[Rfam]
RNA sequence: UCGGGAAGCGCACGGCCGCAAAUCCGACGUCGCCGUCGUUGACGGCUUGGGAUUGCGGAGGUGC
Numbered sequence: 001u002c003g004g005g006a007a008g009c010g011c012a013c014g015g016c017c018g019c020a021a022a023u024c025c026g027a028c029g030u031c032g033c034c035g036u037c038g039u040u041g042a043c044g045g046c047u048u049g050g051g052a053u054u055g056c057g058g059a060g061g062u063g064c
Stems, first nucleotide, its partner, number of pairs: 010064004016058006024051002032046006